[Rfam]
RNA sequence: GGAUCGGGAGGCCAUCGGUCGGGAGAUGGUCGAGCAUGGAUCCGAACCCCCUGUUUCGAAAAGGGCGCAGUGCCGGGGCCCGGCGGCACGUGUU
Numbered sequence: 001g002g003a004u005c006g007g008g009a010g011g012c013c014a015u016c017g018g019u020c021g022g023g024a025g026a027u028g029g030u031c032g033a034g035c036a037u038g039g040a041u042c043c044g045a046a047c048c049c050c051c052u053g054u055u056u057c058g059a060a061a062a063g064g065g066c067g068c069a070g071u072g073c074c075g076g077g078g079c080c081c082g083g084c085g086g087c088a089c090g091u092g093u094u
Stems, first nucleotide, its partner, number of pairs: 001043005010031007067093003070089006
Rfam assigns this 94-nucleotide RNA sequence from Pseudooceanicola batsensis to the family "Rhodo-rpoB RNA". It is annotated as a cis-regulatory element. The sequence is in the family's curated seed alignment. The family's consensus secondary structure is taken from published work.